[Rfam]
About this RNA:
This 75-nucleotide RNA sequence from Austrofundulus limnaeus belongs to the Rfam family "Small nucleolar RNA SNORD2".
RNA sequence: GUGUGAAAUGAUGUUUACCAUCUUUCGGGACUGACCUUUGUUGUGGAGAGUUCCUUUUUGUUUUACUGAUCACGU
Numbered sequence: 001g002u003g004u005g006a007a008a009u010g011a012u013g014u015u016u017a018c019c020a021u022c023u024u025u026c027g028g029g030a031c032u033g034a035c036c037u038u039u040g041u042u043g044u045g046g047a048g049a050g051u052u053c054c055u056u057u058u059u060g061u062u063u064u065a066c067u068g069a070u071c072a073c074g075u
Stems, first nucleotide, its partner, number of pairs: 001075006